A member of the RNA family "Alphaproteobacterial ar14" from Rhizobium etli, 128 nucleotides long. It is one of the family's seed sequences. Lineage of the source: Bacteria > Pseudomonadati > Hyphomicrobiales > Rhizobiaceae > Rhizobium etli. The literature on the family includes a 2012 paper in RNA Biol by del Val et al., "A survey of sRNA families in alpha-proteobacteria". Rfam links the family to the GO term biological process involved in symbiotic interaction.
[Rfam]
RNA sequence: GAAAUUCAGACGGCCAACUCCUCCUCCCGAAGGGACGUCUGUCGGAACAGCGGCACUCCUCCUCCCAGGUCGCUGUUCGGUUCUUUUAGAAAAGCCUGCCGCACCUCCACCCGCGGCAGGCUUUUCUA
Numbered sequence: 001g002a003a004a005u006u007c008a009g010a011c012g013g014c015c016a017a018c019u020c021c022u023c024c025u026c027c028c029g030a031a032g033g034g035a036c037g038u039c040u041g042u043c044g045g046a047a048c049a050g051c052g053g054c055a056c057u058c059c060u061c062c063u064c065c066c067a068g069g070u071c072g073c074u075g076u077u078c079g080g081u082u083c084u085u086u087u088a089g090a091a092a093a094g095c096c097u098g099c100c101g102c103a104c105c106u107c108c109a110c111c112c113g114c115g116g117c118a119g120g121c122u123u124u125u126c127u128a
Stems, first nucleotide, its partner, number of pairs: 007041006014034002045078010092123011